[Rfam]
RNA sequence: CUAGUGAUGCCGAGAGAGACUGUAGCGACAACUUUCGUAAGCAGCGCCGAAGGAGCAACCGCCCCGGAAACUCUCAGGCAAAAGGAUCGGCAUCACUGC
Numbered sequence: 001c002u003a004g005u006g007a008u009g010c011c012g013a014g015a016g017a018g019a020c021u022g023u024a025g026c027g028a029c030a031a032c033u034u035u036c037g038u039a040a041g042c043a044g045c046g047c048c049g050a051a052g053g054a055g056c057a058a059c060c061g062c063c064c065c066g067g068a069a070a071c072u073c074u075c076a077g078g079c080a081a082a083a084g085g086a087u088c089g090g091c092a093u094c095a096c097u098g099c
Base pairs, nucleotide, nucleotide: 006094007093008092009091010090011089012088013087020044021043022042023041046079047078048077049075050074053073054072055071059067060066
RNA: Glycine riboswitch aptamer